[Rfam]
RNA sequence: AUCCGCUGGUGGCACUCCUCCUGAAAACGGGCGGUGAGCGAGCGUUUGCCUCAAGCAGACAGAUACCCCGGCCCGCCAACUGAGCGGGCUUUUUUUU
Numbered sequence: 001a002u003c004c005g006c007u008g009g010u011g012g013c014a015c016u017c018c019u020c021c022u023g024a025a026a027a028c029g030g031g032c033g034g035u036g037a038g039c040g041a042g043c044g045u046u047u048g049c050c051u052c053a054a055g056c057a058g059a060c061a062g063a064u065a066c067c068c069c070g071g072c073c074c075g076c077c078a079a080c081u082g083a084g085c086g087g088g089c090u091u092u093u094u095u096u097u
Stems, first nucleotide, its partner, number of pairs: 009043002015036001017034002020031004070090007077082001
Tryptophan operon leader: a 97-nucleotide RNA sequence from Pseudescherichia vulneris.
At least 6 amino acid operons are known to be regulated by attenuation. In each a leader sequence of 150-200 bp is found upstream of the first gene in the operon. This leader sequence can assume two different secondary structures known as the terminator and the anti-terminator structure. In each case the leader also codes for very short peptide sequence that is rich in the end product amino acid of the operon. The terminator structure is recognised as a termination signal for RNA polymerase and the operon is not transcribed. This structure forms when the cell has an excess of the regulatory amino acid and ribosome movement over the leader transcript is not impeded. When there is a deficiency of the charged tRNA of the regulatory amino acid the ribosome translating the leader peptide stalls and the antiterminator structure can form. This allows RNA polymerase to transcribe the operon. In the Rfam alignment the consensus structure is of the terminator structure.
Its family is annotated with transcriptional attenuation by ribosome and tryptophan biosynthetic process in the Gene Ontology.
On this family, see Kolter and Yanofsky, Annu Rev Genet 1982: "Attenuation in amino acid biosynthetic operons".